RNA sequence: ACGACCUUACUUGAACAGGAUCUGUUCUAUAGGCUCGUACCGUUGCAUCCUUUACCGUAAAGGAGGCAAGCACUCAAGCCUGGUUGAUGAGACCAAUGACCUUCUGGGCCAGAGCGUGAUUAACGGCCAGGAUUGCUCCUCUGAUCGGAAGCAUCCGACGGCUGUAGAGGAUCGUUCCUACCUGGGUUACUCCGCGUAGGGUUGGCUCAGAGGUGGUCUGACAGGCU
Numbered sequence: 001a002c003g004a005c006c007u008u009a010c011u012u013g014a015a016c017a018g019g020a021u022c023u024g025u026u027c028u029a030u031a032g033g034c035u036c037g038u039a040c041c042g043u044u045g046c047a048u049c050c051u052u053u054a055c056c057g058u059a060a061a062g063g064a065g066g067c068a069a070g071c072a073c074u075c076a077a078g079c080c081u082g083g084u085u086g087a088u089g090a091g092a093c094c095a096a097u098g099a100c101c102u103u104c105u106g107g108g109c110c111a112g113a114g115c116g117u118g119a120u121u122a123a124c125g126g127c128c129a130g131g132a133u134u135g136c137u138c139c140u141c142u143g144a145u146c147g148g149a150a151g152c153a154u155c156c157g158a159c160g161g162c163u164g165u166a167g168a169g170g171a172u173c174g175u176u177c178c179u180a181c182c183u184g185g186g187u188u189a190c191u192c193c194g195c196g197u198a199g200g201g202u203u204g205g206c207u208c209a210g211a212g213g214u215g216g217u218c219u220g221a222c223a224g225g226c227u
Base pairs, nucleotide, nucleotide: 001038002037003035005033006032007031013027014026015025016024017023018022043069044068045067046066048064049063050062051061052060053059078226079225080224081223082222099214100213101212103211104210105209106208107207108206109205110204111203113176114175115174116173123165124164125163126162127161128160130156131155132154133153137149138148139147177200178199179198180197181196183194184193185192186191
RNA: Plant small nucleolar RNA U3
Organism: Oryza brachyantha